[Rfam]
RNA sequence: ACCGGUCCUCGGUAGUGGCUUUCGGGUACGGCUGCACAGCAGACCAGCACCCGCGGGCCUCGAUCGAAGACCGGC
Dot-bracket structure: .((((((.(((((...(((((.(((((.(.................).))))).)))))...))))).)))))).